[Rfam]
Nucleotides: 123
Stems, first nucleotide, its partner, number of pairs: 006018004022059002026055007038046002079110006087101006
Number, partner (000 for none) and nucleotide at each position: 001000a002000c003000c004000a005000u006018c007017c008016u009015u010000u011000u012000c013000u014000u015009g016008g017007g018006g019000u020000u021000a022059c023058a024000c025000u026055g027054c028053u029052g030051u031050c032049c033000a034000a035000u036000g037000a038046g039045c040000g041000c042000a043000u044000a045039g046038u047000g048000a049032g050031g051030g052029c053028a054027g055026u056000a057000c058023u059022g060000c061000u062000a063000a064000c065000g066000c067000c068000u069000a070000a071000a072000c073000a074000c075000a076000c077000u078000u079110g080109c081108a082107u083106c084105g085000a086000c087101u088100a089099a090098a091097g092096c093000u094000c095000u096092g097091c098090u099089u100088u101087a102000u103000g104000u105084u106083g107082g108081u109080g110079c111000a112000g113000u114000u115000u116000u117000c118000g119000g120000a121000a122000a123000a
The record is a 123-nucleotide RNA from Callithrix jacchus, which matches "U4atac minor spliceosomal RNA" in Rfam. Rfam classes the family as a spliceosomal small nuclear RNA. The family has 61 seed sequences and 1,648 matches in Rfam 15.1. Its Rfam clan is "U4 clan". The source organism's lineage runs through Eukaryota, Craniata, Eutheria, Callithrix and Callithrix.